About this RNA
This 68-nucleotide RNA sequence belongs to the Rfam family "DUF3800-IX RNA". From the family's description: Actinobacteria, Firmicutes (1 example), Nitrospirae, Proteobacteria, Verrucomicrobia (1 example). Rfam's curators put it in the seed alignment. It is annotated as a small RNA.
[Rfam]
RNA sequence: GACUCGAUUACCGAACAGUCACCGUAUGGUGUGCGUGCCUCCUUGAGGGGCUAGGCAUCGAGUCGAUU
Number, nucleotide and partner (000 for none) at each position: 001g064002a063003c062004u061005c060006g059007a058008u057009u000010a000011c055012c054013g000014a000015a000016c000017a000018g034019u033020c031021a030022c029023c028024g000025u000026a000027u000028g023029g022030u021031g020032u000033g019034c018035g000036u000037g051038c050039c049040u000041c048042c047043u000044u000045g000046a000047g042048g041049g039050g038051c037052u000053a000054g012055g011056c000057a008058u007059c006060g005061a004062g003063u002064c001065g000066a000067u000068u000